[Rfam]
RNA sequence: UGCAGAUGAUGUGAAAAAAUACUUGCUAUCUGAAUGGUAGUGCUGACAUACAUAACCACCAAGAUCGCUGAUGCA
Numbered sequence: 001u002g003c004a005g006a007u008g009a010u011g012u013g014a015a016a017a018a019a020u021a022c023u024u025g026c027u028a029u030c031u032g033a034a035u036g037g038u039a040g041u042g043c044u045g046a047c048a049u050a051c052a053u054a055a056c057c058a059c060c061a062a063g064a065u066c067g068c069u070g071a072u073g074c075a
Base pairs, nucleotide, nucleotide: 001075002074003073004072
This 75-nucleotide sequence belongs to the Rfam family "Small nucleolar RNA SNORD24". Rfam links the family to the GO terms nucleolus and RNA processing. Rfam classes the family as a C/D-box small nucleolar RNA. A reference for the family is Qu et al. (1995), "U24, a novel intron-encoded small nucleolar RNA with two 12 nt long, phylogenetically conserved complementarities to 28S rRNA", Nucleic Acids Res.